[Rfam]
RNA sequence: AUCGUCAGAGGAUGAAAUCAGGAAAUAUCUUAGGACACCUUCCUACACAGCAUCUCACCUGCUGUGGAUGAGAACAACUUUCCUUUCUGAUGAUGGU
Numbered sequence: 001a002u003c004g005u006c007a008g009a010g011g012a013u014g015a016a017a018u019c020a021g022g023a024a025a026u027a028u029c030u031u032a033g034g035a036c037a038c039c040u041u042c043c044u045a046c047a048c049a050g051c052a053u054c055u056c057a058c059c060u061g062c063u064g065u066g067g068a069u070g071a072g073a074a075c076a077a078c079u080u081u082c083c084u085u086u087c088u089g090a091u092g093a094u095g096g097u
Stems, first nucleotide, its partner, number of pairs: 001097007043050002
Background: Shown here is a 97-nucleotide RNA sequence from Rhamnella rubrinervis, a member of the family "Small nucleolar RNA snoR31/Z110/Z27". It scores 61 bits against the family's covariance model. Its family is annotated with RNA processing and nucleolus in the Gene Ontology. It is annotated as a C/D-box small nucleolar RNA. Lineage of the source: Eukaryota > Viridiplantae > Spermatophyta > Pentapetalae > Rhamnella. For this family Rfam cites "Identification of 66 box C/D snoRNAs in Arabidopsis thaliana: extensive gene duplications generated multiple isoforms predicting new ribosomal RNA 2'-O-methylation sites" (Barneche et al., J Mol Biol, 2001). This family contains several related snoRNAs including R31, Z27 and Z110.